Source information
The record is an 87-nucleotide sequence from a Thermoanaerobaculia bacterium, which matches "tRNA" in Rfam. The source organism's lineage runs through Bacteria, Pseudomonadati, Acidobacteriota and Thermoanaerobaculia. The family's consensus secondary structure is taken from published work. The family's RNA type in Rfam is transfer RNA. It scores 57 bits against the family's covariance model.

RNA sequence: GGAGAGGUGCUGGAGUGGUUGAUCAGGCCGGUCUCGAAAACCGGUAAGCCCGAGAGGGCUUCGAGGGUUCGAAUCCCUCCCUCUCCG
Numbered sequence: 001g002g003a004g005a006g007g008u009g010c011u012g013g014a015g016u017g018g019u020u021g022a023u024c025a026g027g028c029c030g031g032u033c034u035c036g037a038a039a040a041c042c043g044g045u046a047a048g049c050c051c052g053a054g055a056g057g058g059c060u061u062c063g064a065g066g067g068u069u070c071g072a073a074u075c076c077c078u079c080c081c082u083c084u085c086c087g
Stems, first nucleotide, its partner, number of pairs: 001086007010026004028044005063079005